Shown here is a 435-nucleotide RNA sequence from bacterium HR21, a member of the family "Bacterial RNase P class A". The family's consensus secondary structure is taken from published work. Rfam classes the family as a ribozyme.
RNA sequence: CGGGGAAUGCGGGCAGUCGCGGGAGACCCUUUAGCGGGCUCCUGAGGAAAGUCCGAACUCCGCAGAGCAGCGUGCCGGCUAACAGCCGGGCGGGCUCCCGUAAGGGUGUCCCGACGGAAAGUGCCACAGAGACCAGACCGCCGAUCCGCUCGUGGAGAGCUCCUCCACGAGGUCAUGGAGGCAAGGGUGAAAGGGUGGGGUAAGAGCCCACCAGCACCUCGGGUAACCGGGGUGGCUUGGCAAACCCCACGCGGAGCAAGACCAAAUAGGGAUGCGGACCCCGUCCCAGGGGUGACAGGUGGCUCGCCUGUGUGGGUUCCUCACCCCCCGCAUCCGGGUAGGUCGCCGGAGAGCACGGGAGACCGUGCUCCCAGAUUCAUGACUGCCUCCCCAGAACUGGGCAGACAGAAUUCGGCUUACAGCAUUCCCCGCUUG
Numbered sequence: 001c002g003g004g005g006a007a008u009g010c011g012g013g014c015a016g017u018c019g020c021g022g023g024a025g026a027c028c029c030u031u032u033a034g035c036g037g038g039c040u041c042c043u044g045a046g047g048a049a050a051g052u053c054c055g056a057a058c059u060c061c062g063c064a065g066a067g068c069a070g071c072g073u074g075c076c077g078g079c080u081a082a083c084a085g086c087c088g089g090g091c092g093g094g095c096u097c098c099c100g101u102a103a104g105g106g107u108g109u110c111c112c113g114a115c116g117g118a119a120a121g122u123g124c125c126a127c128a129g130a131g132a133c134c135a136g137a138c139c140g141c142c143g144a145u146c147c148g149c150u151c152g153u154g155g156a157g158a159g160c161u162c163c164u165c166c167a168c169g170a171g172g173u174c175a176u177g178g179a180g181g182c183a184a185g186g187g188u189g190a191a192a193g194g195g196u197g198g199g200g201u202a203a204g205a206g207c208c209c210a211c212c213a214g215c216a217c218c219u220c221g222g223g224u225a226a227c228c229g230g231g232g233u234g235g236c237u238u239g240g241c242a243a244a245c246c247c248c249a250c251g252c253g254g255a256g257c258a259a260g261a262c263c264a265a266a267u268a269g270g271g272a273u274g275c276g277g278a279c280c281c282c283g284u285c286c287c288a289g290g291g292g293u294g295a296c297a298g299g300u301g302g303c304u305c306g307c308c309u310g311u312g313u314g315g316g317u318u319c320c321u322c323a324c325c326c327c328c329c330g331c332a333u334c335c336g337g338g339u340a341g342g343u344c345g346c347c348g349g350a351g352a353g354c355a356c357g358g359g360a361g362a363c364c365g366u367g368c369u370c371c372c373a374g375a376u377u378c379a380u381g382a383c384u385g386c387c388u389c390c391c392c393a394g395a396a397c398u399g400g401g402c403a404g405a406c407a408g409a410a411u412u413c414g415g416c417u418u419a420c421a422g423c424a425u426u427c428c429c430c431g432c433u434u435g
Stems, first nucleotide, its partner, number of pairs: 001431010011420001012387007020044006027037002049418003053415005058256004065322003070252005075089005090115001091113004116247002121245002123241003138186002140182003145179004194212006214236001215234008260344004270335006314326004351370008